[Rfam]
RNA sequence: AAUUCUGUUCGUAAGACCAAGAGAAGCAUAUCUAUCUAUAACCCGAUAAGUACCAAUACUCAAUGUAG
Numbered sequence: 001a002a003u004u005c006u007g008u009u010c011g012u013a014a015g016a017c018c019a020a021g022a023g024a025a026g027c028a029u030a031u032c033u034a035u036c037u038a039u040a041a042c043c044c045g046a047u048a049a050g051u052a053c054c055a056a057u058a059c060u061c062a063a064u065g066u067a068g
Base pairs, nucleotide, nucleotide: 003021004020006019007018009016010015044065050059051058052057
Rfam assigns this 68-nucleotide RNA from Musa balbisiana to the family "Plastid-clpP 5UTR RNA". By type it is a cis-regulatory element. The organism belongs to Musa, within Eukaryota. A reference for the family is Richter et al. (2023), "Retrograde signaling in plants: A critical review focusing on the GUN pathway and beyond", Plant Commun.